[Rfam]
RNA sequence: AUUGAGACUAGAGUCACAUCUUGAUGUCUUCAGUCAUUGUGGUGUGCUAUAGUACUCGGAGAGAAAAACUGAUCUUUAUUCACUGACUUUGUUGUUCUGUAGCAAAGUCAGUCACCAGGUUAGUGACAGAC
Numbered sequence: 001a002u003u004g005a006g007a008c009u010a011g012a013g014u015c016a017c018a019u020c021u022u023g024a025u026g027u028c029u030u031c032a033g034u035c036a037u038u039g040u041g042g043u044g045u046g047c048u049a050u051a052g053u054a055c056u057c058g059g060a061g062a063g064a065a066a067a068a069c070u071g072a073u074c075u076u077u078a079u080u081c082a083c084u085g086a087c088u089u090u091g092u093u094g095u096u097c098u099g100u101a102g103c104a105a106a107g108u109c110a111g112u113c114a115c116c117a118g119g120u121u122a123g124u125g126a127c128a129g130a131c
Stems, first nucleotide, its partner, number of pairs: 002059005007053003012048002015046006023038004069123007082112005088106006
Rfam assigns this 131-nucleotide sequence from Podarcis muralis to the family "Small nucleolar RNA SNORA3/SNORA45 family". The family has 6 seed sequences and 2,080 matches in Rfam 15.1. It scores 95 bits against the family's covariance model. About the family: The members of this family belong to the H/ACA class of snoRNAs which are thought to guide the sites of modification of uridines to pseudouridines. This family includes mouse snoMBI-28 and human homologues ACA3 (SNORA3) and ACA3-2 (SNORA45).